A member of the RNA family "ZMP/ZTP riboswitch aptamer (pfl RNA motif)" from Nocardioides silvaticus, 74 nucleotides long. The match comes from Rfam's covariance-model search (43 bits). Gene Ontology terms of the family: regulation of purine nucleotide biosynthetic process and one-carbon metabolic process. The family's consensus secondary structure is taken from published work. The source organism's lineage runs through Bacteria, Bacillati, Propionibacteriales, Nocardioidaceae and Nocardioides.

RNA sequence: UGAGGGUCAACGACUGGCGUGGGUGGGCAACCACCGGGGAGUGUGAGCCGGCAUCGACCGCCUGGGUGCCCUCA
Numbered sequence: 001u002g003a004g005g006g007u008c009a010a011c012g013a014c015u016g017g018c019g020u021g022g023g024u025g026g027g028c029a030a031c032c033a034c035c036g037g038g039g040a041g042u043g044u045g046a047g048c049c050g051g052c053a054u055c056g057a058c059c060g061c062c063u064g065g066g067u068g069c070c071c072u073c074a
Base pairs, nucleotide, nucleotide: 004049005048007046008045009044010042011041014038015037016062017061018060019059023034024033025032026031051069052068053067054066055065